[Rfam]
Nucleotides: 077
Stems, first nucleotide, its partner, number of pairs: 001077006009032004037069008
Number, partner (000 for none) and nucleotide at each position: 001077g002076u003075a004074c005073u006072g007000g008000a009032u010031g011030g012029g013000u014000g015000u016000u017000a018000u019000g020000c021000c022000g023000c024000u025000g026000u027000g028000a029012c030011c031010c032009a033000u034000u035000g036000u037069c038068a039067u040066g041065u042064a043063u044062c045000c046000a047000a048000g049000g050000a051000g052000a053000g054000c055000g056000a057000u058000c059000g060000c061000a062044g063043a064042u065041a066040c067039a068038u069037g070000g071000a072006c073005g074004g075003u076002a077001c
Rfam assigns this 77-nucleotide sequence from Atlanticothrix silvestris to the family "CyVA-1 RNA". Lineage of the source: Bacteria > Cyanobacteriota > Nodulariaceae > Atlanticothrix > Atlanticothrix silvestris. Pairs were carried over by alignment from the consensus structure, which is taken from published work. The family's RNA type in Rfam is small RNA.